[Rfam]
RNA sequence: UAAAGAGGAAGCCCCGUUAAGAGCGGUCGCGUCCGUGCGACCAACACGGGAUAAAACAUCCUGUUUU
Number, nucleotide and partner (000 for none) at each position: 001u000002a000003a000004a000005g000006a000007g000008g000009a000010a000011g052012c000013c050014c049015c048016g047017u046018u000019a000020a000021g000022a000023g000024c000025g000026g041027u040028c039029g038030c037031g000032u000033c000034c000035g000036u000037g030038c029039g028040a027041c026042c000043a000044a000045c000046a017047c016048g015049g014050g013051a000052u011053a067054a066055a065056a064057c063058a000059u000060c000061c000062u000063g057064u056065u055066u054067u053
Source information
Bacillaceae-1 RNA: a 67-nucleotide RNA sequence from Effusibacillus lacus. It scores 42 bits against the family's covariance model. Pairs were carried over by alignment from the consensus structure, which is taken from published work. The organism belongs to Effusibacillus, within Bacteria. By type it is a small RNA.